RNA sequence: CCAAAGGCUCUUUUAAGAGCCACCCACAGUUUCAUGGAAAGAGCU
Numbered sequence: 001c002c003a004a005a006g007g008c009u010c011u012u013u014u015a016a017g018a019g020c021c022a023c024c025c026a027c028a029g030u031u032u033c034a035u036g037g038a039a040a041g042a043g044c045u
Stems, first nucleotide, its partner, number of pairs: 006021006
Rfam assigns this 45-nucleotide RNA from Salvator merianae to the family "Histone 3' UTR stem-loop". The organism belongs to Salvator, within Eukaryota. Pairs were carried over by alignment from the consensus structure, which is taken from published work. Rfam 15.1 lists 44,596 matches to the family in 976 species. A search with the family's covariance model found it, with a score of 41 bits. From the family's description: The mRNAs of metazoan histone genes lack a poly-A tail. 3' end processing occurs at a site between a highly conserved stem-loop (modelled by this family) and a purine rich region around 20 nts downstream (the histone downstream element, or HDE). The stem-loop is bound by a 31 kDa stem-loop binding protein (SLBP - also termed the histone hairpin binding protein, or HBP). Together with U7 snRNA binding of the HDE, SLBP binding nucleate s the formation of the processing complex.